[Rfam]
A member of the RNA family "tRNA" from Halorubrum hochstenium, 71 nucleotides long.
RNA sequence: GGGACCGUGGGGUAGUGGUAUCCUAUGCGGAUGGGGUCCGUAUGACCUGAGUUCGACUCUCAGCGGUCCCA
Numbered sequence: 001g002g003g004a005c006c007g008u009g010g011g012g013u014a015g016u017g018g019u020a021u022c023c024u025a026u027g028c029g030g031a032u033g034g035g036g037u038c039c040g041u042a043u044g045a046c047c048u049g050a051g052u053u054c055g056a057c058u059c060u061c062a063g064c065g066g067u068c069c070c071a
Stems, first nucleotide, its partner, number of pairs: 001070007010024003026042005047063005
Lineage of the source: Archaea > Methanobacteriati > Methanobacteriota > Haloferacaceae > Halorubrum hochstenium.
Rfam classes the family as a transfer RNA.
The match comes from Rfam's covariance-model search (53 bits).
The family's consensus secondary structure is taken from published work.